[Rfam]
Shown here is a 101-nucleotide RNA from Protea cynaroides, a member of the family "Small nucleolar RNA R30/Z108". The match comes from Rfam's covariance-model search (79 bits). By type it is a C/D-box small nucleolar RNA. snoR30 is a C/D box small nucleolar RNA which acts as a methylation guide for 18S ribosomal RNA in plants. Lineage of the source: Eukaryota > Streptophytina > Tracheophyta > Magnoliopsida > Protea. The family's consensus secondary structure was predicted with PFOLD. Rfam links the family to the GO terms RNA processing and nucleolus.
RNA sequence: GAAGGUUGCGAUGAGGAUAGGAAGCUCCCUCUUCUGAAAUCAAGCUGAUGACAAAUGCUGGCAGAAUUGAACCUAAUACUUAAACCUCCACUACUGAGUAA
Numbered sequence: 001g002a003a004g005g006u007u008g009c010g011a012u013g014a015g016g017a018u019a020g021g022a023a024g025c026u027c028c029c030u031c032u033u034c035u036g037a038a039a040u041c042a043a044g045c046u047g048a049u050g051a052c053a054a055a056u057g058c059u060g061g062c063a064g065a066a067u068u069g070a071a072c073c074u075a076a077u078a079c080u081u082a083a084a085c086c087u088c089c090a091c092u093a094c095u096g097a098g099u100a101a
Base pairs, nucleotide, nucleotide: 006101007100008099009098